This 424-nucleotide part of an RNA from Neolecta irregularis belongs to the Rfam family "Eukaryotic large subunit ribosomal RNA". The organism belongs to Neolecta irregularis, within Eukaryota. Gene Ontology terms of the family: structural constituent of ribosome and ribosome.
[Rfam]
RNA sequence: UGACCUCAAAUCAGGCAGGAUUACGGGCUGAACUUAAGCAUAUCAAUAAGCCCAGGAAAAGAAACCAACAAGGAUUCCCCUAGUAACGGCGAGUGAAGCGGGAUCAGCUCAAAUUUGGAAUCUGGCAGAUUACAUCUGUCCGAAUUGUAAUUUCAAGAGGCAUCUUUGGGUGUGGCUCAGGUAAAAGUCUGUUGGAAUACAGUAUCAUAGAGGGUGAGAAUCCCGUCCAUGACCUGGGACCCAUUCCUAUGUAAAGUGUCUUCAAAGAGUCGAGUUGUUUGGGAAUGCAGCUCUAAAUGGGUGGUAAAUUCCAUCUAAGGCUAAAUACUGGUGGGAGACCGAUAGCGAACAAGUAGUGUGAACGAAAGAUGAAAAGAACUUUGAAAAGAGAGUUAAAUAGUACGUGAAAUUGUUGAAAGGGAAG
Numbered sequence: 001u002g003a004c005c006u007c008a009a010a011u012c013a014g015g016c017a018g019g020a021u022u023a024c025g026g027g028c029u030g031a032a033c034u035u036a037a038g039c040a041u042a043u044c045a046a047u048a049a050g051c052c053c054a055g056g057a058a059a060a061g062a063a064a065c066c067a068a069c070a071a072g073g074a075u076u077c078c079c080c081u082a083g084u085a086a087c088g089g090c091g092a093g094u095g096a097a098g099c100g101g102g103a104u105c106a107g108c109u110c111a112a113a114u115u116u117g118g119a120a121u122c123u124g125g126c127a128g129a130u131u132a133c134a135u136c137u138g139u140c141c142g143a144a145u146u147g148u149a150a151u152u153u154c155a156a157g158a159g160g161c162a163u164c165u166u167u168g169g170g171u172g173u174g175g176c177u178c179a180g181g182u183a184a185a186a187g188u189c190u191g192u193u194g195g196a197a198u199a200c201a202g203u204a205u206c207a208u209a210g211a212g213g214g215u216g217a218g219a220a221u222c223c224c225g226u227c228c229a230u231g232a233c234c235u236g237g238g239a240c241c242c243a244u245u246c247c248u249a250u251g252u253a254a255a256g257u258g259u260c261u262u263c264a265a266a267g268a269g270u271c272g273a274g275u276u277g278u279u280u281g282g283g284a285a286u287g288c289a290g291c292u293c294u295a296a297a298u299g300g301g302u303g304g305u306a307a308a309u310u311c312c313a314u315c316u317a318a319g320g321c322u323a324a325a326u327a328c329u330g331g332u333g334g335g336a337g338a339c340c341g342a343u344a345g346c347g348a349a350c351a352a353g354u355a356g357u358g359u360g361a362a363c364g365a366a367a368g369a370u371g372a373a374a375a376g377a378a379c380u381u382u383g384a385a386a387a388g389a390g391a392g393u394u395a396a397a398u399a400g401u402a403c404g405u406g407a408a409a410u411u412g413u414u415g416a417a418a419g420g421g422a423a424g
Stems, first nucleotide, its partner, number of pairs: 024055001025053005035042002065072001076103004086094002106322004112152004118146002121143002124140004157263002159260004164256004169247002172244004177237006187203001189202004206210001213223002272293007299316005356363002379390004